[Rfam]
This 35-nucleotide RNA from Pedobacter heparinus belongs to the Rfam family "DUF805b RNA". Rfam classes the family as a cis-regulatory element.
RNA sequence: AUGGCGAACGCUGAAAAGCCUUAACAGAGUAAGCA
Dot-bracket structure: ..(((....[[[.....)))...........]]].